The record is a 114-nucleotide RNA from Drosophila melanogaster, which matches "Potassium channel RNA editing signal" in Rfam. The family has 85 seed sequences and 14,095 matches in Rfam 15.1. The sequence is in the family's curated seed alignment. The source organism's lineage runs through Eukaryota, Panorpida, Drosophilinae, Drosophila and Sophophora.
RNA sequence: GUUGGAUAUGGUGACAUGACGCCCGUCGGCUUCUGGGGCAAAAUUGUCGGCUCUUUGUGCGUGGUCGCUGGUGUGCUGACAAUCGCACUGCCGGUACCGGUUAUCGUCAGUAAU
Number, nucleotide and partner (000 for none) at each position: 001g114002u113003u000004g111005g000006a000007u000008a107009u106010g105011g104012u000013g102014a101015c100016a000017u000018g097019a000020c000021g095022c094023c000024c000025g000026u000027c000028g000029g000030c000031u000032u000033c000034u000035g000036g000037g077038g076039c075040a074041a000042a000043a000044u000045u000046g000047u000048c000049g000050g062051c061052u000053c000054u000055u000056u000057g000058u000059g000060c000061g051062u050063g000064g000065u000066c000067g000068c000069u000070g000071g000072u000073g000074u040075g039076c038077u037078g000079a000080c000081a000082a000083u000084c000085g000086c000087a000088c000089u000090g000091c000092c000093g000094g022095u021096a000097c018098c000099g000100g015101u014102u013103a000104u011105c010106g009107u008108c000109a000110g000111u004112a000113a002114u001